The family of this 67-nucleotide RNA from Serpentinicella alkaliphila is "Fluoride riboswitch aptamer (crcB RNA motif)". The literature on the family includes a 2012 paper in Nature by Ren et al., "Fluoride ion encapsulation by Mg2+ ions and phosphates in a fluoride riboswitch".
RNA sequence: UAUACAACAGGCGAUGGAGUACCGCCUUUAACCACUAAUUAUAUUAGUUAAUGACUCCUACAAACCU
Dot-bracket structure: .........[[[[..(((((..]]]].......((((.......)))).....))))).........
Numbered sequence: 001u002a003u004a005c006a007a008c009a010g011g012c013g014a015u016g017g018a019g020u021a022c023c024g025c026c027u028u029u030a031a032c033c034a035c036u037a038a039u040u041a042u043a044u045u046a047g048u049u050a051a052u053g054a055c056u057c058c059u060a061c062a063a064a065c066c067u
Stems, first nucleotide, its partner, number of pairs: 010026004016058005034048004